Rfam assigns this 167-nucleotide RNA from Mycoplasmopsis verecunda to the family "Lysine riboswitch aptamer". The family's consensus secondary structure is taken from published work. NCBI's taxonomy places the organism under Bacteria, Bacillati, Mycoplasmatota, Metamycoplasmataceae, Mycoplasmopsis. A search with the family's covariance model found it, with a score of 73 bits.
RNA sequence: AAAAACUAUAGAGGAGCUUUUAGUAAUAGUAAAUAUUCUAGUGGGCACACGAUAAUGAAUAUUGAAAGGAUAUAAAAGCCGAAGCAUUUAAAGUGGCAACUUUAAAGCUGGUAGAAAAGCAUAAAAGAUUUCUACUCUUUGUUAACAACAUUGGUGCUAUAGAUUUG
Numbered sequence: 001a002a003a004a005a006c007u008a009u010a011g012a013g014g015a016g017c018u019u020u021u022a023g024u025a026a027u028a029g030u031a032a033a034u035a036u037u038c039u040a041g042u043g044g045g046c047a048c049a050c051g052a053u054a055a056u057g058a059a060u061a062u063u064g065a066a067a068g069g070a071u072a073u074a075a076a077a078g079c080c081g082a083a084g085c086a087u088u089u090a091a092a093g094u095g096g097c098a099a100c101u102u103u104a105a106a107g108c109u110g111g112u113a114g115a116a117a118a119g120c121a122u123a124a125a126a127g128a129u130u131u132c133u134a135c136u137c138u139u140u141g142u143u144a145a146c147a148a149c150a151u152u153g154g155u156g157c158u159a160u161a162g163a164u165u166u167g
Stems, first nucleotide, its partner, number of pairs: 006162006016079006023071002032063007083109003087105001089104006110136007118129001120127001